[Rfam]
A member of the RNA family "Plastid-rpl16 group II-D1 intron" from Coptis quinquesecta, 48 nucleotides long.
RNA sequence: AAGAGCGUCGAGUCAAUAAGGACUGAGGAGAUUGAUUCAGGAACAAAU
Numbered sequence: 001a002a003g004a005g006c007g008u009c010g011a012g013u014c015a016a017u018a019a020g021g022a023c024u025g026a027g028g029a030g031a032u033u034g035a036u037u038c039a040g041g042a043a044c045a046a047a048u
Stems, first nucleotide, its partner, number of pairs: 008040001010038008
Dot-bracket structure: .......(.((((((((.............)))))))).)........
Description
Rfam links the family to the GO term Group II intron splicing. The organism belongs to Coptis, within Eukaryota. The family has 538 seed sequences and 1,446 matches in Rfam 15.1. On this family, see Richter et al., Plant Commun 2023: "Retrograde signaling in plants: A critical review focusing on the GUN pathway and beyond". Plastid-rpl16 is a non-coding RNA (ncRNA) recognised in plastids. It was recognised in and intronic region of a ribosome rpl16 gene.